RNA sequence: CGAAAUUUUUCAUGAUGAUCCCAUAGUUCAGCUGACUGUCUUUGAUGUUUACUCAUAGCAAUGUCUUUCGCUCCUAUCUGAAUAUUUAA
Numbered sequence: 001c002g003a004a005a006u007u008u009u010u011c012a013u014g015a016u017g018a019u020c021c022c023a024u025a026g027u028u029c030a031g032c033u034g035a036c037u038g039u040c041u042u043u044g045a046u047g048u049u050u051a052c053u054c055a056u057a058g059c060a061a062u063g064u065c066u067u068u069c070g071c072u073c074c075u076a077u078c079u080g081a082a083u084a085u086u087u088a089a
Stems, first nucleotide, its partner, number of pairs: 004086003008082001
Small nucleolar RNA snR60/Z15/Z230/Z193/J17: an 89-nucleotide RNA sequence from Microctonus aethiopoides. The base pairs follow the family's consensus structure. The source organism's lineage runs through Eukaryota, Pterygota, Endopterygota, Ichneumonoidea and Microctonus. Rfam classes the family as a C/D-box small nucleolar RNA.